[Rfam]
RNA sequence: CUCCCGAAAAGGCAAGCCGCCGAUGUAUCGGUGGCACGCAAAAUCACAGGCCCUGACGCGUCGUCGGGGUGGCUGGAUUACCGAA
Numbered sequence: 001c002u003c004c005c006g007a008a009a010a011g012g013c014a015a016g017c018c019g020c021c022g023a024u025g026u027a028u029c030g031g032u033g034g035c036a037c038g039c040a041a042a043a044u045c046a047c048a049g050g051c052c053c054u055g056a057c058g059c060g061u062c063g064u065c066g067g068g069g070u071g072g073c074u075g076g077a078u079u080a081c082c083g084a085a
Base pairs, nucleotide, nucleotide: 012039013038017034018033019032020031021030022029042079043078044077045076047075048074049073050070051069052068053067054066055065056064
Dot-bracket structure: ...........((...((((((......))))))...))..((((.((((((((((.......)))))))..)))))))......